[Rfam]
RNA sequence: CUUCCUCCUAAUGCAAGUAAUCAAGGAUAGGCCAAGUAGAAUGUGAACAGCCUAUCCUGGAUUACUUGAACCAGGCUGAGG
Numbered sequence: 001c002u003u004c005c006u007c008c009u010a011a012u013g014c015a016a017g018u019a020a021u022c023a024a025g026g027a028u029a030g031g032c033c034a035a036g037u038a039g040a041a042u043g044u045g046a047a048c049a050g051c052c053u054a055u056c057c058u059g060g061a062u063u064a065c066u067u068g069a070a071c072c073a074g075g076c077u078g079a080g081g
Base pairs, nucleotide, nucleotide: 002080003079004078007075008074009073012070014068015067016066017065018064019063020062021061022060024058025057026056027055028054029053030052031051032050
About this RNA
This 81-nucleotide sequence from Eleutherodactylus coqui belongs to the Rfam family "mir-26 microRNA precursor family". The organism belongs to Eleutherodactylus, within Eukaryota. On this family, see Lagos-Quintana et al., Science 2001: "Identification of novel genes coding for small expressed RNAs". Gene Ontology terms of the family: RISC complex and miRNA-mediated post-transcriptional gene silencing. The base pairs follow the family's consensus structure, which was predicted with RNAalifold. The family has 82 seed sequences and 2,251 matches in Rfam 15.1.